Shown here is a 79-nucleotide RNA from Medicago truncatula, a member of the family "MIR5269 microRNA precursor family". It scores 63 bits against the family's covariance model.

[Rfam]
RNA sequence: UUGGUUUAAAUUAUUGUGCGCCUACACUUUCAAAAUUGAACUUACACAAAGUGGUGGGACAUAUUUUAAUUUCUUCCAA
Numbered sequence: 001u002u003g004g005u006u007u008a009a010a011u012u013a014u015u016g017u018g019c020g021c022c023u024a025c026a027c028u029u030u031c032a033a034a035a036u037u038g039a040a041c042u043u044a045c046a047c048a049a050a051g052u053g054g055u056g057g058g059a060c061a062u063a064u065u066u067u068a069a070u071u072u073c074u075u076c077c078a079a
Base pairs, nucleotide, nucleotide: 001079002078003077004076008072009071010070011069012068013067016064017063018062022057023056024055025053026052027051028050029049030048